[Rfam]
RNA sequence: UCAGAAUGAUGAACUUCUCACUGGUCCGUGUUGCAGACUAUCAGUGAUGAUCGUGAAGUUCUGACUGA
Numbered sequence: 001u002c003a004g005a006a007u008g009a010u011g012a013a014c015u016u017c018u019c020a021c022u023g024g025u026c027c028g029u030g031u032u033g034c035a036g037a038c039u040a041u042c043a044g045u046g047a048u049g050a051u052c053g054u055g056a057a058g059u060u061c062u063g064a065c066u067g068a
Base pairs, nucleotide, nucleotide: 001068002067003066004065
RNA: Small nucleolar RNA SNORD18